RNA: Archaeal large subunit ribosomal RNA, nucleotides 674 to 938
Organism: Sulfolobales archaeon HS-7
RNA sequence: GAGUUCUCAUUGGUGGCGAGCUUAAGGGGUUUACCUCCGAAGGCGUAGGGAAACCAAAUGCACGCAACCCAGCAAUGGGUGAGGUGCAGGGUCUGAUAAGGGCCUUAAGUCACCGGUGAGAGGCUAGAAACCGGGCGAUCUAGACCGGGGCAGGCCGAAGCGGGGGGAAACUUCCGUGGAGGGCCGAGCGGGUUCUGACGUGCAACUCGUUCCUUAGACCUCGGUCUAGGGGUAAUAGGCCAAUCUAGCCCGGUGAUAGCUAGUU
Dot-bracket structure: ....(((((((((((((..((((..((((.....))))..))))...((....))....((((...((((......))))...))))..((((.......))))....)))))))))))))..((.(...((((((...((((((((((((.((((...(((((((....)))))))....))))....(((..(.((........))).)))...).))))))))))).(((.....)))......))))))......).))..